[Rfam]
Shown here is a 114-nucleotide RNA, a member of the family "Potassium channel RNA editing signal". The family has 85 seed sequences and 14,095 matches in Rfam 15.1. The sequence is in the family's curated seed alignment.
RNA sequence: GUGGGCUAUGGAGAUAUGACGCCCGUGGGUGUGUGGGGCAAGAUCGUUGGGUCCCUGUGUGCCAUCGCUGGUGUCCUUACCAUCGCUCUUCCUGUUCCCGUUAUCGUGUCAAAC
Numbered sequence: 001g002u003g004g005g006c007u008a009u010g011g012a013g014a015u016a017u018g019a020c021g022c023c024c025g026u027g028g029g030u031g032u033g034u035g036g037g038g039c040a041a042g043a044u045c046g047u048u049g050g051g052u053c054c055c056u057g058u059g060u061g062c063c064a065u066c067g068c069u070g071g072u073g074u075c076c077u078u079a080c081c082a083u084c085g086c087u088c089u090u091c092c093u094g095u096u097c098c099c100g101u102u103a104u105c106g107u108g109u110c111a112a113a114c
Base pairs, nucleotide, nucleotide: 001114002113005110007108008107009106010105011104013102014101015100018097019096021095022094037077038076040074049063050062

The family's consensus secondary structure is taken from published work. Rfam describes the family as follows. This family represents a group of sequences related to the human potassium channel Kv1.1 hairpin element which directs the efficient modification of an adenosine to inosine by an adenosine deaminase acting on RNA (ADAR).